[Rfam]
RNA sequence: AUAUAAGCAAAAGUUUGAUUUUUAGAUUUAUUCAUUAAAUGACGUAUGUAGUCUAAAGACUACAUACGUCAUUUAACGAAUUAAUCUAAAAAUCAAACUUUUGCUUAUAU
Numbered sequence: 001a002u003a004u005a006a007g008c009a010a011a012a013g014u015u016u017g018a019u020u021u022u023u024a025g026a027u028u029u030a031u032u033c034a035u036u037a038a039a040u041g042a043c044g045u046a047u048g049u050a051g052u053c054u055a056a057a058g059a060c061u062a063c064a065u066a067c068g069u070c071a072u073u074u075a076a077c078g079a080a081u082u083a084a085u086c087u088a089a090a091a092a093u094c095a096a097a098c099u100u101u102u103g104c105u106u107a108u109a110u
Stems, first nucleotide, its partner, number of pairs: 002109006009102005015096011027084002030081004035076010049062004
The record is a 110-nucleotide RNA sequence from Medicago truncatula, which matches "MIR2593 microRNA precursor family" in Rfam. The base pairs follow the family's consensus structure, which was predicted with RNAalifold. The source organism's lineage runs through Eukaryota, Viridiplantae, eudicotyledons, Pentapetalae and Medicago. Its family is annotated with RISC complex and miRNA-mediated post-transcriptional gene silencing in the Gene Ontology. It scores 97 bits against the family's covariance model.